[Rfam]
RNA: Iron response element II
Organism: Podarcis muralis
RNA sequence: AAUUUAUCAGCAGCAGUGUCUGCUAUAAAUU
Numbered sequence: 001a002a003u004u005u006a007u008c009a010g011c012a013g014c015a016g017u018g019u020c021u022g023c024u025a026u027a028a029a030u031u
Base pairs, nucleotide, nucleotide: 001031002030003029004028005027006026007025009024010023011022012021013020014018